[Rfam]
RNA sequence: GUGGGCUAUGGAGACAUGGUCCCCACGACCAUAGGUGGGAAAAUAGUUGGUUCCUUGUGUGCCAUUGCAGGUGUAUUAACAAUUGCCUUACCCGUGCCGGUUAUAGUGUCCAAU
Numbered sequence: 001g002u003g004g005g006c007u008a009u010g011g012a013g014a015c016a017u018g019g020u021c022c023c024c025a026c027g028a029c030c031a032u033a034g035g036u037g038g039g040a041a042a043a044u045a046g047u048u049g050g051u052u053c054c055u056u057g058u059g060u061g062c063c064a065u066u067g068c069a070g071g072u073g074u075a076u077u078a079a080c081a082a083u084u085g086c087c088u089u090a091c092c093c094g095u096g097c098c099g100g101u102u103a104u105a106g107u108g109u110c111c112a113a114u
Base pairs, nucleotide, nucleotide: 001114002113004111005110007108008107009106011104013102014101015100018097021094037077038076040074049063050062051061
The record is a 114-nucleotide RNA sequence from Phrynocephalus forsythii, which matches "Potassium channel RNA editing signal" in Rfam.
On this family, see Bhalla et al., Nat Struct Mol Biol 2004: "Control of human potassium channel inactivation by editing of a small mRNA hairpin".
Rfam classes the family as a cis-regulatory element.
Rfam links the family to the GO term adenosine to inosine editing.